This 45-nucleotide RNA from Paraburkholderia sediminicola belongs to the Rfam family "Guanidine-II riboswitch aptamer (mini-ykkC)". A search with the family's covariance model found it, with a score of 34 bits. Lineage of the source: Bacteria > Pseudomonadota > Betaproteobacteria > Burkholderiaceae > Paraburkholderia. Rfam's curators write: Simpler in structure and has fewer highly conserved nucleotide positions than the ykkC-yxkD leader. Despite this each of its two stem-loop structures directly bind free guanidine. Therefore, mini-ykkC RNA motif represents a distinct class of guanidine-sensing RNAs.

[Rfam]
RNA sequence: UCGUAAGGACGACCUUGCGCACUGCUACAAACGGGGACGGCCCCA
Dot-bracket structure: .(((((((....))))))).............((((....)))).